[Rfam]
RNA sequence: CCACCUUUAGAGCCGGCGGCGGCAGCGAGGCAGGGCCCAGCCGACGGGGCGGCGCCCGUCGCCGUAACCAAUG
Numbered sequence: 001c002c003a004c005c006u007u008u009a010g011a012g013c014c015g016g017c018g019g020c021g022g023c024a025g026c027g028a029g030g031c032a033g034g035g036c037c038c039a040g041c042c043g044a045c046g047g048g049g050c051g052g053c054g055c056c057c058g059u060c061g062c063c064g065u066a067a068c069c070a071a072u073g
Base pairs, nucleotide, nucleotide: 012041013040015037016036044065045064046063047062048060050058051057052056